This 573-nucleotide sequence belongs to the Rfam family "ROOL RNA". Rfam describes the family as follows. Firmicutes, Fusobacteria (1 example), Tenericutes (1 example). The base pairs follow the family's consensus structure, which is taken from published work. It is one of the family's seed sequences. The family's RNA type in Rfam is small RNA.

[Rfam]
RNA sequence: AACAGAAUAUUGUCUACUGCCUAACUAUGUGAAGAAGGUGUCAACUUGCAUAGAAGUGGUGUAUGUGGCGGCGGUAAAUGACAGAUAUGUUAUUGUUCUAGCCGUUCUGACAUUGGCGACAGUGUUGGAAAAUCUGGAAACCGGAAAUCACAAGCUGCUGUGCUGGUUCUACUGGUCACUAAAGGUCGGGUACUGCUGGUCUGGAUAAUAGACGCUACUGUGUAGAAUAAGCCUGAUUGGACGGUGUGGAAACCGUAAACCAUAUGGUAAUCCAAACAACCAGAUUCGUCUUGAUGUUGUGGAAACGCAACUAUAACAGCAGUCGUUCGGUGGAGUAGCCCAAUGACGUUACGAAUUGAAGAUUUAGAUACAUGUUUUUUUGUAAUCCUAAAUUUCUGAAUGAUGGGUGAAACUUGCUGGUACUCAAUCCAGCUACGACUUAGAGGUGCUUGCACCUGUGGCAAGAAGUUUAGUGGAGACGUUCCCUAGGCUCAGACUUGUCGCUCGUAUGACCGAAUAUAGUGGAUGGUAGAGAUUGGUAGGGCGAAGGUCCAGGCGGUAGGCAAUAUUCUG
Numbered sequence: 001a002a003c004a005g006a007a008u009a010u011u012g013u014c015u016a017c018u019g020c021c022u023a024a025c026u027a028u029g030u031g032a033a034g035a036a037g038g039u040g041u042c043a044a045c046u047u048g049c050a051u052a053g054a055a056g057u058g059g060u061g062u063a064u065g066u067g068g069c070g071g072c073g074g075u076a077a078a079u080g081a082c083a084g085a086u087a088u089g090u091u092a093u094u095g096u097u098c099u100a101g102c103c104g105u106u107c108u109g110a111c112a113u114u115g116g117c118g119a120c121a122g123u124g125u126u127g128g129a130a131a132a133u134c135u136g137g138a139a140a141c142c143g144g145a146a147a148u149c150a151c152a153a154g155c156u157g158c159u160g161u162g163c164u165g166g167u168u169c170u171a172c173u174g175g176u177c178a179c180u181a182a183a184g185g186u187c188g189g190g191u192a193c194u195g196c197u198g199g200u201c202u203g204g205a206u207a208a209u210a211g212a213c214g215c216u217a218c219u220g221u222g223u224a225g226a227a228u229a230a231g232c233c234u235g236a237u238u239g240g241a242c243g244g245u246g247u248g249g250a251a252a253c254c255g256u257a258a259a260c261c262a263u264a265u266g267g268u269a270a271u272c273c274a275a276a277c278a279a280c281c282a283g284a285u286u287c288g289u290c291u292u293g294a295u296g297u298u299g300u301g302g303a304a305a306c307g308c309a310a311c312u313a314u315a316a317c318a319g320c321a322g323u324c325g326u327u328c329g330g331u332g333g334a335g336u337a338g339c340c341c342a343a344u345g346a347c348g349u350u351a352c353g354a355a356u357u358g359a360a361g362a363u364u365u366a367g368a369u370a371c372a373u374g375u376u377u378u379u380u381u382g383u384a385a386u387c388c389u390a391a392a393u394u395u396c397u398g399a400a401u402g403a404u405g406g407g408u409g410a411a412a413c414u415u416g417c418u419g420g421u422a423c424u425c426a427a428u429c430c431a432g433c434u435a436c437g438a439c440u441u442a443g444a445g446g447u448g449c450u451u452g453c454a455c456c457u458g459u460g461g462c463a464a465g466a467a468g469u470u471u472a473g474u475g476g477a478g479a480c481g482u483u484c485c486c487u488a489g490g491c492u493c494a495g496a497c498u499u500g501u502c503g504c505u506c507g508u509a510u511g512a513c514c515g516a517a518u519a520u521a522g523u524g525g526a527u528g529g530u531a532g533a534g535a536u537u538g539g540u541a542g543g544g545c546g547a548a549g550g551u552c553c554a555g556g557c558g559g560u561a562g563g564c565a566a567u568a569u570u571c572u573g
Base pairs, nucleotide, nucleotide: 007570011566014563015562018559021556022555025053026052027051028050029049036047037046038045039044055159056158057157058156059155060154069104070103071102072101073099077094078093079092080091081090082089083088105130106129107128108127109126110125111124112123113122114121115120133145134144135143136142137141167554168534170532173529180522184520185514188328189327190326191325192323193322194321195320196319197318198317199285200284201283202282203281204280215225216224217223218222231268232267233266238262239261240260242255243254244253247274248273249272250271287348288347289346290345296311297310298309299308300307332413338408339407340406341405342404395496396495397494398493418432420430435508436507437506438457445455458505461502464499465498468492470489471488472487475484476483477482542553543552544551545550